A member of the RNA family "Lysine riboswitch aptamer" from Bacillus sp. 165, 182 nucleotides long.
[Rfam]
RNA sequence: UCAAAGAGUAGAGGUUGCAGUGAUUAUGAGUAGCUUACAGGAGACCUAAUGGGGUUGGCGAAUGUAAAGAGAAAGGAAUUGCUGCCGAAGUAAAAAGGAGGCCAUAACCCUUUUUGCUGGGACUGUAUUGAAUAAAUACAGUACUGUCACGAGUUUGCAGCUUGUGAGGAGCUAUCUGGAGA
Numbered sequence: 001u002c003a004a005a006g007a008g009u010a011g012a013g014g015u016u017g018c019a020g021u022g023a024u025u026a027u028g029a030g031u032a033g034c035u036u037a038c039a040g041g042a043g044a045c046c047u048a049a050u051g052g053g054g055u056u057g058g059c060g061a062a063u064g065u066a067a068a069g070a071g072a073a074a075g076g077a078a079u080u081g082c083u084g085c086c087g088a089a090g091u092a093a094a095a096a097g098g099a100g101g102c103c104a105u106a107a108c109c110c111u112u113u114u115u116g117c118u119g120g121g122a123c124u125g126u127a128u129u130g131a132a133u134a135a136a137u138a139c140a141g142u143a144c145u146g147u148c149a150c151g152a153g154u155u156u157g158c159a160g161c162u163u164g165u166g167a168g169g170a171g172c173u174a175u176c177u178g179g180a181g182a
Base pairs, nucleotide, nucleotide: 006177008175009174010173011172017085018084019083020082021081022080023079024078025077034069035067036066037065038064039063089118090117091116092115093114094113095112096111097110098109119145120144122142123141124140125139126138127137128136129135147167148166149165150164151163152162153161
The match comes from Rfam's covariance-model search (116 bits).